[Rfam]
RNA: Mason-Pfizer monkey virus packaging signal
RNA sequence: UGGCGCCCAAUGAUGUGGCUUUGGAUACGGGGGAAUUCGAGAGGGAAGAGGCAUCUAAGUGUUCAGCCGAAGAAGAAAAAAAAAAAAGUGAAAGUCAGUUCGUCAAAGAUCACCCUGGGAGCCUGCCGUGCGCUGUUCUUAAAGGUACAGUAGCACCUAACUAUGGGACAAGAAUUAAGUAAGCAUAAAGUUUUUGUUAAGCAAUUAAAAGAAGCUUUAAAGACACAGGGAGUAAAGGUUAAGAGUAAUGAUCUUUUUAAGUUUUUUGACCUUAUUAAGGACACCUGUCCGU
Numbered sequence: 001u002g003g004c005g006c007c008c009a010a011u012g013a014u015g016u017g018g019c020u021u022u023g024g025a026u027a028c029g030g031g032g033g034a035a036u037u038c039g040a041g042a043g044g045g046a047a048g049a050g051g052c053a054u055c056u057a058a059g060u061g062u063u064c065a066g067c068c069g070a071a072g073a074a075g076a077a078a079a080a081a082a083a084a085a086a087a088g089u090g091a092a093a094g095u096c097a098g099u100u101c102g103u104c105a106a107a108g109a110u111c112a113c114c115c116u117g118g119g120a121g122c123c124u125g126c127c128g129u130g131c132g133c134u135g136u137u138c139u140u141a142a143a144g145g146u147a148c149a150g151u152a153g154c155a156c157c158u159a160a161c162u163a164u165g166g167g168a169c170a171a172g173a174a175u176u177a178a179g180u181a182a183g184c185a186u187a188a189a190g191u192u193u194u195u196g197u198u199a200a201g202c203a204a205u206u207a208a209a210a211g212a213a214g215c216u217u218u219a220a221a222g223a224c225a226c227a228g229g230g231a232g233u234a235a236a237g238g239u240u241a242a243g244a245g246u247a248a249u250g251a252u253c254u255u256u257u258u259a260a261g262u263u264u265u266u267u268g269a270c271c272u273u274a275u276u277a278a279g280g281a282c283a284c285c286u287g288u289c290c291g292u
Base pairs, nucleotide, nucleotide: 006033007032008031015028016027017026038050095145096144099142100141109137110135114130116128117127118126151171153169156167157166158165159164176219177218178217179215180214226268227267228266229265230264231263232262233261236254237253238252239251240250241249277292279290280289281288282287